[Rfam]
RNA sequence: UGAAGGAAGUGGUGUAGCAAAGUUCUUGAGCCUACGAACAGAAACUUGAUAAGGCGAUUAGGUGGAUAAGGUUGCCGAACAAACCAAAGUCCUAAUGGUAAACGUAUACCGAAGUUGUAAAUCAAGAGGUUGUGGAACGAAAGAUUAGUGU
Dot-bracket structure: ........(((.(....(...(((((.((((((...........(((((....(((.((.(((((((..((((........))))...))))...............))).))..)))...)))))))))).))))))....)...).)))
RNA: Group II catalytic intron D1-D4-3